[Rfam]
RNA sequence: CGAGUAAGCCGAGCAGCCGCGUGCACAGUGCCGAAAGGCCGUGUAUGAGGAAAGUCCGGGCUUUAUAGGGCAGGAUAACGGAUAACAUCCGCCGAAGGCGACUUCAGGACAAGUGCAACAGAGAUAUACCGCCAUGCCUUGCAUGGUAAGGGUGGAAAGGCGGGGUAAGAGCCCACCGGUCCCCCAGGUAACUGGGGGAUCCUGUAAACUCUAUCCAAAGCAACACCGGAAGGAAAACAGCGCCCCAGGGCGCAGGGCUGGCCCGGUCCGUUUUCGGGAGGUGGCUCGAGGUGUCUGGCAACAGGCGUCCCAGAUAGAUGGCUGCAUAGACAGAACCCGGCUUAUAGGCUUGCUCGAAAA
Number, nucleotide and partner (000 for none) at each position: 001c356002g355003a354004g353005u352006a351007a350008g349009c348010c347011g345012a000013g325014c324015a323016g322017c321018c320019g000020c047021g046022u045023g044024c043025a042026c041027a000028g039029u000030g000031c000032c000033g000034a000035a000036a000037g000038g000039c028040c000041g026042u025043g024044u023045a022046u021047g020048a000049g000050g000051a000052a343053a342054g341055u000056c340057c339058g338059g337060g336061c220062u219063u218064u217065a000066u000067a000068g264069g263070g262071c261072a000073g216074g215075a214076u213077a212078a000079c091080g090081g089082a088083u000084a000085a000086c000087a000088u082089c081090c080091g079092c000093c107094g105095a104096a103097g102098g000099c000100g000101a000102c097103u096104u095105c094106a000107g093108g211109a210110c000111a000112a000113g209114u208115g205116c204117a203118a000119c000120a000121g000122a000123g000124a000125u000126a000127u000128a000129c151130c150131g147132c146133c145134a144135u143136g142137c141138c000139u000140u000141g137142c136143a135144u134145g133146g132147u131148a000149a000150g130151g129152g000153u000154g000155g000156a000157a000158a000159g177160g176161c000162g174163g173164g172165g000166u000167a000168a000169g000170a000171g000172c164173c163174c162175a000176c160177c159178g000179g201180u199181c198182c197183c196184c195185c194186a193187g192188g000189u000190a000191a000192c187193u186194g185195g184196g183197g182198g181199a180200u000201c179202c000203u117204g116205u115206a000207a000208a114209c113210u109211c108212u077213a076214u075215c074216c073217a064218a063219a062220g061221c000222a000223a000224c283225a282226c281227c280228g000229g000230a000231a000232g000233g275234a274235a273236a272237a271238c270239a000240g000241c000242g000243c000244c000245c000246c000247a000248g000249g000250g000251c000252g000253c000254a000255g269256g268257g267258c266259u265260g000261g071262c070263c069264c068265g259266g258267u257268c256269c255270g238271u237272u236273u235274u234275c233276g000277g000278g000279a000280g227281g226282u225283g224284g000285c000286u000287c000288g000289a000290g309291g308292u307293g306294u305295c304296u303297g302298g000299c000300a000301a000302c297303a296304g295305g294306c293307g292308u291309c290310c000311c000312a000313g000314a000315u000316a000317g000318a000319u000320g018321g017322c016323u015324g014325c013326a000327u000328a000329g000330a000331c000332a000333g000334a000335a000336c060337c059338c058339g057340g056341c054342u053343u052344a000345u011346a000347g010348g009349c008350u007351u006352g005353c004354u003355c002356g001357a000358a000359a000360a000
Overview: This 360-nucleotide RNA from Ruminococcaceae bacterium AM28-23LB belongs to the Rfam family "Bacterial RNase P class A". Rfam classes the family as a ribozyme. The family's consensus secondary structure is taken from published work. About the family: Ribonuclease P (RNase P) is a ubiquitous endoribonuclease, found in archaea, bacteria and eukarya as well as chloroplasts and mitochondria.